[Rfam]
RNA sequence: CAAGCAUGAAUGCUGCUAUUUUCCGCUUCUUUUUUUACUUUAGCACCUGACUCCAGGAGGCUAGCGCGUGAAAGAAGAAACGAAAAACAGCGCGAAAAAGCCUCCUGAUGGAGGCUUUUUUUGU
Numbered sequence: 001c002a003a004g005c006a007u008g009a010a011u012g013c014u015g016c017u018a019u020u021u022u023c024c025g026c027u028u029c030u031u032u033u034u035u036u037a038c039u040u041u042a043g044c045a046c047c048u049g050a051c052u053c054c055a056g057g058a059g060g061c062u063a064g065c066g067c068g069u070g071a072a073a074g075a076a077g078a079a080a081c082g083a084a085a086a087a088c089a090g091c092g093c094g095a096a097a098a099a100g101c102c103u104c105c106u107g108a109u110g111g112a113g114g115c116u117u118u119u120u121u122u123g124u
Stems, first nucleotide, its partner, number of pairs: 015091003020086003024082002027079007035071004046057003059065001097118009
Shown here is a 124-nucleotide RNA sequence from Citrobacter koseri, a member of the family "Phenylalanine leader peptide". It is annotated as a cis-regulatory leader. The family's consensus secondary structure was predicted with CMfinder. NCBI's taxonomy places the organism under Bacteria, Pseudomonadati, Enterobacterales, Enterobacteriaceae, Citrobacter koseri. It scores 69 bits against the family's covariance model.